[Rfam]
RNA sequence: UUUGAUCUAUGAUGACCUUAAUACAUUGUUGACUUCUGGAUGAAGCUUGCGGAUAUGGGACUGAGAUCAGUG
Numbered sequence: 001u002u003u004g005a006u007c008u009a010u011g012a013u014g015a016c017c018u019u020a021a022u023a024c025a026u027u028g029u030u031g032a033c034u035u036c037u038g039g040a041u042g043a044a045g046c047u048u049g050c051g052g053a054u055a056u057g058g059g060a061c062u063g064a065g066a067u068c069a070g071u072g
Stems, first nucleotide, its partner, number of pairs: 002070004

Small nucleolar RNA SNORD99: a 72-nucleotide sequence from Maylandia zebra. By type it is a C/D-box small nucleolar RNA.